[Rfam]
The family of this 61-nucleotide RNA sequence from Pristionchus pacificus is "mir-8364 microRNA precursor family". The family has 13 seed sequences and 3,320 matches in Rfam 15.1.
RNA sequence: UCUCCAUUCCUCGCGCUCUCUCAUCGGUCAGGGUGUCGAGAGAGUACGGGAAAUGAAGAGA
Numbered sequence: 001u002c003u004c005c006a007u008u009c010c011u012c013g014c015g016c017u018c019u020c021u022c023a024u025c026g027g028u029c030a031g032g033g034u035g036u037c038g039a040g041a042g043a044g045u046a047c048g049g050g051a052a053a054u055g056a057a058g059a060g061a
Base pairs, nucleotide, nucleotide: 001059002058003057005055006054007053010050012048013047015045016044017043019041020040021039022038
The match comes from Rfam's covariance-model search (72 bits).
Pairs were carried over by alignment from the consensus structure, which was predicted with RNAalifold.